Background: The family of this 96-nucleotide RNA from Sphenodon punctatus is "Small nucleolar RNA SNORD127".
RNA sequence: UGGCAACAAUGAUGAUGUCUUGACACUGUACGUAAUGCAUUGCAUUGCAUUGCAUUGCUCUAUGGAGACACCAGUCCCUCUAAACUGACGUUGCCA
Numbered sequence: 001u002g003g004c005a006a007c008a009a010u011g012a013u014g015a016u017g018u019c020u021u022g023a024c025a026c027u028g029u030a031c032g033u034a035a036u037g038c039a040u041u042g043c044a045u046u047g048c049a050u051u052g053c054a055u056u057g058c059u060c061u062a063u064g065g066a067g068a069c070a071c072c073a074g075u076c077c078c079u080c081u082a083a084a085c086u087g088a089c090g091u092u093g094c095c096a
Stems, first nucleotide, its partner, number of pairs: 001096007
About this RNA: On this family, see Yang et al., Nucleic Acids Res 2006: "snoSeeker: an advanced computational package for screening of guide and orphan snoRNA genes in the human genome". It scores 65 bits against the family's covariance model. It is annotated as a C/D-box small nucleolar RNA. The family has 13 seed sequences and 541 matches in Rfam 15.1.